[Rfam]
RNA sequence: UUGUUAUCAAGAAAGGUGGAGGGAAUAGACCCUAUGAAACCUUAGCAACCCUUGGGCACCCCUGUUUAUCAGGGAACCAAGAAGGUGCUACAUUCUAUCCUGUUUUAGUUGGGAAUAGAUAACGC
Numbered sequence: 001u002u003g004u005u006a007u008c009a010a011g012a013a014a015g016g017u018g019g020a021g022g023g024a025a026u027a028g029a030c031c032c033u034a035u036g037a038a039a040c041c042u043u044a045g046c047a048a049c050c051c052u053u054g055g056g057c058a059c060c061c062c063u064g065u066u067u068a069u070c071a072g073g074g075a076a077c078c079a080a081g082a083a084g085g086u087g088c089u090a091c092a093u094u095c096u097a098u099c100c101u102g103u104u105u106u107a108g109u110u111g112g113g114a115a116u117a118g119a120u121a122a123c124g125c
Base pairs, nucleotide, nucleotide: 002124003123004122005121006120007119008118013043014042015041016040017039021032022031023030026097027096028095029094044089045088046087047086049085050084051081052080053079054078093117098114099113100112101111102110
Dot-bracket structure: .(((((((....(((((...(((..[[[[)))......)))))((((.((((((.......................))))..))))))...(]]]](((((.......)))))..)))))))).

A member of the RNA family "SAM riboswitch aptamer (S box leader)" from Sediminicola luteus, 125 nucleotides long. NCBI's taxonomy places the organism under Bacteria, Pseudomonadati, Bacteroidota, Flavobacteriia, Sediminicola. The base pairs follow the family's consensus structure, which is taken from published work.